[Rfam]
RNA sequence: UAAUCGAACCAUUAACAACUACAGGUGGUUAAUAGGCAGCUGAAAGUGCCUGUCUAGUGUGCAUCAGUGGCAUGCGACAUCUUCAAAUUGCGGGGACGUCCUAAAACCUUCAUCACCAAGCUAUCGUGGAAACACAGAUAGUGGCCGAGCUAAUAGCCCUGGGUAUGGUAAAAGCAUGAAGGAUGCAACAAUGGAUAAUCCGCAGCCAAGCUCUACGUCGUAGCAAUGCGAUAUGAGUGCAGUUCACAGACUAAAUGGAGAUGGGUUGCGUAGCAAUACGCAGCUUAAGUUAUAGUCGACCCCUUGCGAGAGCAAGCC
Dot-bracket structure: .............................................................................(((((.((...((((((....(((...........................................................................................)))...))))))((...((((....(((((....)))))...))))...))...[.[[[[[..)).))))).((((((((....))))))))........]]]]]]....(((((....)))))..